[Rfam]
RNA sequence: AUUCCUUCUAUCGUGUAUCCCCGAUUAAUGCAGCCUCAUCUGCUUC
Numbered sequence: 001a002u003u004c005c006u007u008c009u010a011u012c013g014u015g016u017a018u019c020c021c022c023g024a025u026u027a028a029u030g031c032a033g034c035c036u037c038a039u040c041u042g043c044u045u046c
Stems, first nucleotide, its partner, number of pairs: 010025004032044003
Dot-bracket structure: .........((((........))))......(((.......)))..
About this RNA: This 46-nucleotide sequence belongs to the Rfam family "Plastid-ycf3 group II-D1 intron". Rfam describes the family as follows. Plastid rpl16 is a non-coding RNA (ncRNA) recognised in plastids. The family has 385 seed sequences and 1,488 matches in Rfam 15.1. A reference for the family is Richter et al. (2023), "Retrograde signaling in plants: A critical review focusing on the GUN pathway and beyond", Plant Commun. It is one of the family's seed sequences. Rfam links the family to the GO term Group II intron splicing.